[Rfam]
RNA sequence: CGGUUUCCUGCUUCAGCAGUGCUGGGACGGAAGCAG
Numbered sequence: 001c002g003g004u005u006u007c008c009u010g011c012u013u014c015a016g017c018a019g020u021g022c023u024g025g026g027a028c029g030g031a032a033g034c035a036g
Stems, first nucleotide, its partner, number of pairs: 001036001003034006010028001012027003016023001017021001
Rfam assigns this 36-nucleotide RNA from Physeter macrocephalus to the family "Iron response element I".
A reference for the family is Hentze et al. (1987), "Identification of the iron-responsive element for the translational regulation of human ferritin mRNA", Science.
The family has 62 seed sequences and 6,829 matches in Rfam 15.1.
By type it is a cis-regulatory element.
The family's consensus secondary structure is taken from published work.